[Rfam]
RNA sequence: AAUAUUAAUAUAAUUUAAACUCGUAUAUACUUGGUAAUUGGUCCAAGCGUUUCUACCCGCUACCGUAAAAUAGCGGACUACGAGGAGUUGUUAGUAUCAU
Number, nucleotide and partner (000 for none) at each position: 001a000002a000003u000004a000005u000006u000007a000008a000009u000010a000011u000012a000013a000014u000015u000016u000017a000018a000019a000020c084021u083022c082023g081024u080025a079026u000027a000028u000029a000030c047031u046032u045033g044034g043035u000036a000037a000038u000039u000040g000041g000042u000043c034044c033045a032046a031047g030048c000049g000050u000051u000052u000053c000054u000055a000056c000057c076058c075059g074060c073061u072062a071063c000064c000065g000066u000067a000068a000069a000070a000071u062072a061073g060074c059075g058076g057077a000078c000079u025080a024081c023082g022083a021084g020085g000086a000087g000088u000089u000090g000091u000092u000093a000094g000095u000096a000097u000098c000099a000100u000

About this RNA
Rfam assigns this 100-nucleotide RNA sequence from Oceanirhabdus seepicola to the family "Purine riboswitch aptamer". Its family is annotated with purine nucleobase biosynthetic process in the Gene Ontology. The base pairs follow the family's consensus structure, which is taken from published work.